This 235-nucleotide sequence belongs to the Rfam family "raiA RNA".
RNA sequence: UUCUUUCAGGUCUGUGGUUGCGGUUUUUCCAAGUCCAAGGCAGAUGCGGUCAAAAGGAUCCACGUAAGCUAUCGGUACAAAUUAAUUGUCUGAAGCGAUCAUGGCGCAUCCUAGGGGUAAGUCGCACCGCUUGCGGGAUAUGCAGCAUAGGGCUGCACAAGCGAGAGAACGAUGUCGUAUAUGGCUUAGUUCCAGUGCGCGAGUGUGGGGGCAAAGACCAGGUCAGCUGAAGGAA
Numbered sequence: 001u002u003c004u005u006u007c008a009g010g011u012c013u014g015u016g017g018u019u020g021c022g023g024u025u026u027u028u029c030c031a032a033g034u035c036c037a038a039g040g041c042a043g044a045u046g047c048g049g050u051c052a053a054a055a056g057g058a059u060c061c062a063c064g065u066a067a068g069c070u071a072u073c074g075g076u077a078c079a080a081a082u083u084a085a086u087u088g089u090c091u092g093a094a095g096c097g098a099u100c101a102u103g104g105c106g107c108a109u110c111c112u113a114g115g116g117g118u119a120a121g122u123c124g125c126a127c128c129g130c131u132u133g134c135g136g137g138a139u140a141u142g143c144a145g146c147a148u149a150g151g152g153c154u155g156c157a158c159a160a161g162c163g164a165g166a167g168a169a170c171g172a173u174g175u176c177g178u179a180u181a182u183g184g185c186u187u188a189g190u191u192c193c194a195g196u197g198c199g200c201g202a203g204u205g206u207g208g209g210g211g212c213a214a215a216g217a218c219c220a221g222g223u224c225a226g227c228u229g230a231a232g233g234a235a
Base pairs, nucleotide, nucleotide: 001235002234003233004232005231006230007229008228009227012226013225014224015220016219017218018217019216037206039204040050043110044109045108046107047106048105059104060103064099072092102213123199124198125197126196127195128163129162130161131160132159167192168191169190170189174185175184176183177182
Rfam's curators put it in the seed alignment.
Pairs were carried over by alignment from the consensus structure, which is taken from published work.